TPP riboswitch aptamer (THI element): a 98-nucleotide sequence from Arthrobacter sp. SW1. Pairs were carried over by alignment from the consensus structure, which is taken from published work.

[Rfam]
RNA sequence: GUCCCUGACACGGGGUGCCGAGCACCGAUGCCGGCUGAGACCAGACCCGUUGAACCUGCCCGGUUAGUACCGGCGAAGGGAUGUCCGAUCCAUGGCAU
Numbered sequence: 001g002u003c004c005c006u007g008a009c010a011c012g013g014g015g016u017g018c019c020g021a022g023c024a025c026c027g028a029u030g031c032c033g034g035c036u037g038a039g040a041c042c043a044g045a046c047c048c049g050u051u052g053a054a055c056c057u058g059c060c061c062g063g064u065u066a067g068u069a070c071c072g073g074c075g076a077a078g079g080g081a082u083g084u085c086c087g088a089u090c091c092a093u094g095g096c097a098u
Base pairs, nucleotide, nucleotide: 007085008084009083010082011049012048013047014046016043017035018034019033020032055079056078057077060073061072062071063070